[Rfam]
RNA sequence: UUAUAGUUAAAUUUCGAUACUCGUAUAUACUCAGUAAUAUGGUCUGAGCGUCUCUACCAAGUUCCCAAUAAAGAACUGGACUACGAGUUAAAGUUAUGGGACU
Numbered sequence: 001u002u003a004u005a006g007u008u009a010a011a012u013u014u015c016g017a018u019a020c021u022c023g024u025a026u027a028u029a030c031u032c033a034g035u036a037a038u039a040u041g042g043u044c045u046g047a048g049c050g051u052c053u054c055u056a057c058c059a060a061g062u063u064c065c066c067a068a069u070a071a072a073g074a075a076c077u078g079g080a081c082u083a084c085g086a087g088u089u090a091a092a093g094u095u096a097u098g099g100g101a102c103u
Stems, first nucleotide, its partner, number of pairs: 019088007030048005058079001060077005
RNA: Purine riboswitch aptamer
Organism: Falsibacillus pallidus